[Rfam]
RNA sequence: GCCAAAUGAUGAUUUCUUUUAAUAAAAUUGAGGUGUCAAUCAAUGAUGACACUUGAUCCAUCACCCAAUAAUCUGAUGGCA
Numbered sequence: 001g002c003c004a005a006a007u008g009a010u011g012a013u014u015u016c017u018u019u020u021a022a023u024a025a026a027a028u029u030g031a032g033g034u035g036u037c038a039a040u041c042a043a044u045g046a047u048g049a050c051a052c053u054u055g056a057u058c059c060a061u062c063a064c065c066c067a068a069u070a071a072u073c074u075g076a077u078g079g080c081a
Stems, first nucleotide, its partner, number of pairs: 001080004032041003
A member of the RNA family "Small nucleolar RNA SNORD83" from Acanthosepion pharaonis, 81 nucleotides long. By type it is a C/D-box small nucleolar RNA. The family has 7 seed sequences and 1,393 matches in Rfam 15.1. The literature on the family includes a 2000 paper in Nucleic Acids Res by Jady and Kiss, "Characterisation of the U83 and U84 small nucleolar RNAs: two novel 2'-O-ribose methylation guide RNAs that lack complementarities to ribosomal RNAs". Lineage of the source: Eukaryota > Opisthokonta > Eumetazoa > Sepiina > Acanthosepion.